[Rfam]
Description: A member of the RNA family "U4 spliceosomal RNA" from Capra hircus, 135 nucleotides long. It is annotated as a spliceosomal small nuclear RNA. About the family: U4 small nuclear RNA (U4 snRNA) is a component of the major U2-dependent spliceosome. Its Rfam clan is "U4 clan".
RNA sequence: GAGUUUGCUCAGUGUCAGUACCAUAGCCAAUGAGGUUUAUCCAAGGCAUGAUUAUUGUUAAUUGAAAAUGUUAAUAUUUGAGAAUUCUGGGUAAAAGCUAUACUCUUUGGUUAUUCUUGAAAUAUUUUUGCAAAU
Numbered sequence: 001g002a003g004u005u006u007g008c009u010c011a012g013u014g015u016c017a018g019u020a021c022c023a024u025a026g027c028c029a030a031u032g033a034g035g036u037u038u039a040u041c042c043a044a045g046g047c048a049u050g051a052u053u054a055u056u057g058u059u060a061a062u063u064g065a066a067a068a069u070g071u072u073a074a075u076a077u078u079u080g081a082g083a084a085u086u087c088u089g090g091g092u093a094a095a096a097g098c099u100a101u102a103c104u105c106u107u108u109g110g111u112u113a114u115u116c117u118u119g120a121a122a123u124a125u126u127u128u129u130g131c132a133a134a135u
Stems, first nucleotide, its partner, number of pairs: 020052001022050003026047003034042002084111003089105005095099001124135004